[Rfam]
RNA sequence: ACCUUCUUGUUUAAGCUCUGUUCUAAAAUUGCAAAACUAGUAUCAUUUCUUGGCAUUUGUAAUAAAGCUAUGAGAGAAAACACAAGAAGAAAGAACAACUCAACAACUGUACCAGAUAGGAGAAAAACUGAGUUGAACCUCUUUUUUGUUUGAUUUUAUUUUUGUUUUGAGACGGAGUCU
Numbered sequence: 001a002c003c004u005u006c007u008u009g010u011u012u013a014a015g016c017u018c019u020g021u022u023c024u025a026a027a028a029u030u031g032c033a034a035a036a037c038u039a040g041u042a043u044c045a046u047u048u049c050u051u052g053g054c055a056u057u058u059g060u061a062a063u064a065a066a067g068c069u070a071u072g073a074g075a076g077a078a079a080a081c082a083c084a085a086g087a088a089g090a091a092a093g094a095a096c097a098a099c100u101c102a103a104c105a106a107c108u109g110u111a112c113c114a115g116a117u118a119g120g121a122g123a124a125a126a127a128c129u130g131a132g133u134u135g136a137a138c139c140u141c142u143u144u145u146u147u148g149u150u151u152g153a154u155u156u157u158a159u160u161u162u163u164g165u166u167u168u169g170a171g172a173c174g175g176a177g178u179c180u
Stems, first nucleotide, its partner, number of pairs: 018076002021073002024070002029065003034057002037053004042048001108174003113169004130156001132154001134152004
Rfam assigns this 180-nucleotide RNA from Cebus imitator to the family "Small nucleolar RNA SNORA81". For this family Rfam cites "A novel experimental approach for systematic identification of box H/ACA snoRNAs from eukaryotes" (Gu et al., Nucleic Acids Res, 2005). Its family is annotated with RNA processing and nucleolus in the Gene Ontology. The organism belongs to Cebus, within Eukaryota. Rfam classes the family as an H/ACA-box small nucleolar RNA.